[Rfam]
RNA sequence: UGCGUGCAUCAAGAGUUGAGCUGACGCUCAACGCCAACCUGCUGUACCCGGCAAGGUGGCGCUUCCCCCAGAGGGGAAGGAUGUGGCCGAUCCGGCAAUGAACGGGAAGCAG
Numbered sequence: 001u002g003c004g005u006g007c008a009u010c011a012a013g014a015g016u017u018g019a020g021c022u023g024a025c026g027c028u029c030a031a032c033g034c035c036a037a038c039c040u041g042c043u044g045u046a047c048c049c050g051g052c053a054a055g056g057u058g059g060c061g062c063u064u065c066c067c068c069c070a071g072a073g074g075g076g077a078a079g080g081a082u083g084u085g086g087c088c089g090a091u092c093c094g095g096c097a098a099u100g101a102a103c104g105g106g107a108a109g110c111a112g
Stems, first nucleotide, its partner, number of pairs: 006084005015032001017030005033060003038056003041052003045108001047106003086096004
The family of this 112-nucleotide RNA from Nitrospirillum viridazoti is "SAM-I/IV (S-adenosyl methionine) riboswitch aptamer". Lineage of the source: Bacteria > Pseudomonadota > Alphaproteobacteria > Rhodospirillales > Nitrospirillum viridazoti. It scores 56 bits against the family's covariance model. For this family Rfam cites "The aptamer core of SAM-IV riboswitches mimics the ligand-binding site of SAM-I riboswitches" (Weinberg et al., RNA, 2008). Clan: SAM clan.